[Rfam]
RNA sequence: UUCUUAUCGAGAGCGACUGAGGGACUGGCCCUGUGAUGUCGCGGCAACCUCCCGUCGGGGAAGGUGCCAAUUCCAGCGGGAUCGACGAUCCCGGGAGAUAAGGA
Numbered sequence: 001u002u003c004u005u006a007u008c009g010a011g012a013g014c015g016a017c018u019g020a021g022g023g024a025c026u027g028g029c030c031c032u033g034u035g036a037u038g039u040c041g042c043g044g045c046a047a048c049c050u051c052c053c054g055u056c057g058g059g060g061a062a063g064g065u066g067c068c069a070a071u072u073c074c075a076g077c078g079g080g081a082u083c084g085a086c087g088a089u090c091c092c093g094g095g096a097g098a099u100a101a102g103g104a
Stems, first nucleotide, its partner, number of pairs: 001104008013042005021031003025076004043068004048064002050060004072096001077093006